[Rfam]
RNA: U1 spliceosomal RNA
RNA sequence: AAACUUACUUGGCUGGGAGGAUGUCGCGAUCAGGAAGGCGAGACCUCCAUGGUGAGGCCCAUGCACUGCACCUCAGCAAGGGCUGAACCGUGUGGCAACCUCGGGUGAGGUUAGCCAACAGCUAAAUUUUUGCGUGUGGGGCGGCGCUCGCGCGGCCCUGU
Dot-bracket structure: ...........(((((((((...((((..........))))..)))))((((...(((.(.(((...........))).).)))...)))).((((((.((......)).)).)))).))))..............(((((..(((....)))..))))).